[Rfam]
RNA sequence: UCAUCAUCACCAUCAUACGAAUUAGCCACUCAGGUUUAUUCGCUGAGGGGCUAUUGGACCUUUCAGCGGAAUAAAGUAAAAGUCAUUACCAAAACCCCCGAAAGAGUCCAUCUCUCUCGGGGGUUUUGUCGU
Dot-bracket structure: .......(...(.(......(........)...).).....)((((((((........)))))))).......................((((((((((((.((((.....)))).))))))))))))....
Numbered sequence: 001u002c003a004u005c006a007u008c009a010c011c012a013u014c015a016u017a018c019g020a021a022u023u024a025g026c027c028a029c030u031c032a033g034g035u036u037u038a039u040u041c042g043c044u045g046a047g048g049g050g051c052u053a054u055u056g057g058a059c060c061u062u063u064c065a066g067c068g069g070a071a072u073a074a075a076g077u078a079a080a081a082g083u084c085a086u087u088a089c090c091a092a093a094a095c096c097c098c099c100g101a102a103a104g105a106g107u108c109c110a111u112c113u114c115u116c117u118c119g120g121g122g123g124u125u126u127u128g129u130c131g132u
Stems, first nucleotide, its partner, number of pairs: 008042001012036001014034001021030001043066008090128012103115004